[Rfam]
Nucleotides: 203
Base pairs, nucleotide, nucleotide: 001060002059003058004057005056006055007054008053009052011051012050015046016045017044018043019042020041021039022038024037025036026035069137070136071135072134073133074132075131076130077129082127084125085124086123087122088121089120090119091118092117094115095114096111099109100108101107139198140197141196142195143194144193146191155184156183159179160178161177162176163175164174165173
Number, partner (000 for none) and nucleotide at each position: 001060c002059c003058c004057a005056g006055c007054a008053g009052u010000a011051g012050u013000c014000a015046g016045c017044u018043g019042u020041c021039c022038g023000u024037g025036g026035c027000u028000g029000c030000u031000c032000a033000g034000u035026g036025c037024c038022c039021g040000u041020g042019a043018c044017a045016g046015u047000g048000u049000u050012a051011c052009g053008c054007u055006g056005c057004u058003g059002g060001g061000a062000g063000a064000g065000a066000a067000a068000g069137g070136c071135g072134c073133u074132g075131c076130c077129a078000g079000g080000c081000u082127g083000u084125c085124c086123u087122g088121g089120c090119a091118c092117c093000a094115g095114c096111g097000g098000c099109g100108c101107c102000g103000u104000c105000c106000u107101g108100g109099c110000a111096c112000u113000c114095g115094c116000u117092g118091g119090u120089g121088c122087c123086a124085g125084g126000u127082u128000u129077u130076g131075g132074c133073a134072g135071u136070g137069c138000u139198c140197u141196g142195c143194a144193u145000g146191c147000c148000c149000g150000a151000g152000a153000g154000u155184g156183g157000a158000g159179u160178a161177a162176c163175u164174c165173c166000u167000g168000c169000c170000c171000g172000u173165g174164g175163a176162g177161u178160u179159a180000g181000a182000g183156c184155c185000u186000a187000g188000a189000u190000u191146g192000g193144a194143u195142g196141c197140a198139g199000a200000c201000a202000g203000c